[Rfam]
RNA sequence: UGCUCUGAGUAAUCGCGGUUAGCUAUAUGCUGGCUGAGGAAAGUCCACUCUCGCACAGGCUGUGAUGCCUGUAGUGUUCGUGCUCGGUGAAAAAAUAAGCCGAGGGAUUGUUUUUAACAAUUACGGCGAAGGAAAUAGCUAAGUACUUCGGUAUAUGCUACAGUACUUCCCAAGGUGCUAUAGAGACGAUUAAUUCAAGAAAUUGGAUUACUGGAACGCAGUAAACCCCGCGAGCGGGAAACCCAAACUUUGGUAGGGGAGCUUUACACACGGAAACAGAACCAAGUGUAGGGCAGAAAUCUUUUUGAUUUCUGAGAUAGAUGAUUACUACUCAAUUGUUUUUCCUGAUAAUUCAAUUGAGCACAAAACAUGGCUUACAGGA
Numbered sequence: 001u002g003c004u005c006u007g008a009g010u011a012a013u014c015g016c017g018g019u020u021a022g023c024u025a026u027a028u029g030c031u032g033g034c035u036g037a038g039g040a041a042a043g044u045c046c047a048c049u050c051u052c053g054c055a056c057a058g059g060c061u062g063u064g065a066u067g068c069c070u071g072u073a074g075u076g077u078u079c080g081u082g083c084u085c086g087g088u089g090a091a092a093a094a095a096u097a098a099g100c101c102g103a104g105g106g107a108u109u110g111u112u113u114u115u116a117a118c119a120a121u122u123a124c125g126g127c128g129a130a131g132g133a134a135a136u137a138g139c140u141a142a143g144u145a146c147u148u149c150g151g152u153a154u155a156u157g158c159u160a161c162a163g164u165a166c167u168u169c170c171c172a173a174g175g176u177g178c179u180a181u182a183g184a185g186a187c188g189a190u191u192a193a194u195u196c197a198a199g200a201a202a203u204u205g206g207a208u209u210a211c212u213g214g215a216a217c218g219c220a221g222u223a224a225a226c227c228c229c230g231c232g233a234g235c236g237g238g239a240a241a242c243c244c245a246a247a248c249u250u251u252g253g254u255a256g257g258g259g260a261g262c263u264u265u266a267c268a269c270a271c272g273g274a275a276a277c278a279g280a281a282c283c284a285a286g287u288g289u290a291g292g293g294c295a296g297a298a299a300u301c302u303u304u305u306u307g308a309u310u311u312c313u314g315a316g317a318u319a320g321a322u323g324a325u326u327a328c329u330a331c332u333c334a335a336u337u338g339u340u341u342u343u344c345c346u347g348a349u350a351a352u353u354c355a356a357u358u359g360a361g362c363a364c365a366a367a368a369c370a371u372g373g374c375u376u377a378c379a380g381g382a
Stems, first nucleotide, its partner, number of pairs: 004382003007378001008329007016036006041376003045373003050238005055072006078233005083104006105124001106122006125228002128169004136160004143154003175226002177222003191210008242258003262293007294314008331361008
Record summary:
Rfam assigns this 382-nucleotide RNA sequence from Fructilactobacillus sanfranciscensis to the family "Bacterial RNase P class B". The family is grouped with related families in Rfam's "RNaseP clan". Its family is annotated with tRNA processing, ribonuclease P activity and dimeric ribonuclease P complex in the Gene Ontology. Lineage of the source: Bacteria > Bacillota > Lactobacillaceae > Fructilactobacillus > Fructilactobacillus sanfranciscensis.